[Rfam]
RNA: Purine riboswitch aptamer
RNA sequence: UAAUAGCAGCAUGAGUGUUCUCGUAUAAUAUUGGAAAUAUGGUCCAAAAGUUUCUACCAAACUACCGUAAAUGGUUUGACUACGAGGAGACAGAGGCCGUAU
Numbered sequence: 001u002a003a004u005a006g007c008a009g010c011a012u013g014a015g016u017g018u019u020c021u022c023g024u025a026u027a028a029u030a031u032u033g034g035a036a037a038u039a040u041g042g043u044c045c046a047a048a049a050g051u052u053u054c055u056a057c058c059a060a061a062c063u064a065c066c067g068u069a070a071a072u073g074g075u076u077u078g079a080c081u082a083c084g085a086g087g088a089g090a091c092a093g094a095g096g097c098c099g100u101a102u
Base pairs, nucleotide, nucleotide: 018088019087020086021085022084023083024082025081029049031047032046033045034044035043058078059077060076061075062074063073064072